[Rfam]
RNA sequence: CUGUCGCGUAAUGCAUCGUCUGAUCAACGAUGGCGCGCUUUAUUCGACAGUCAAGUAAAUAUGUACACAGCUAUCUGAUGAGCAAGAAAGCUGCAAUCCGAAUUGGAAAAAACCGGAGGACUGCAUUCUCUUUCUAUAGGAUAACUGCGCC
Number, nucleotide and partner (000 for none) at each position: 001c050002u049003g048004u047005c046006g000007c000008g043009u042010a041011a040012u000013g038014c032015a031016u030017c029018g028019u000020c000021u000022g000023a000024u000025c000026a000027a000028c018029g017030a016031u015032g014033g083034c082035g000036c080037g079038c013039u000040u011041u010042a009043u008044u000045c000046g005047a004048c003049a002050g001051u000052c000053a000054a000055g000056u000057a000058a000059a000060u000061a000062u000063g000064u000065a000066c000067a000068c147069a146070g145071c000072u143073a142074u141075c000076u000077g000078a000079u037080g036081a000082g034083c033084a000085a000086g000087a000088a000089a000090g127091c000092u125093g124094c123095a000096a000097u000098c000099c000100g000101a000102a000103u000104u115105g114106g113107a000108a000109a000110a000111a000112a000113c106114c105115g104116g000117a000118g000119g000120a000121c000122u000123g094124c093125a092126u000127u090128c000129u000130c000131u000132u000133u000134c000135u000136a000137u000138a000139g000140g000141a074142u073143a072144a000145c070146u069147g068148c000149g000150c000151c000

This 151-nucleotide RNA belongs to the Rfam family "DUF2800 RNA".
It is one of the family's seed sequences.
The base pairs follow the family's consensus structure, which is taken from published work.
Rfam classes the family as a cis-regulatory element.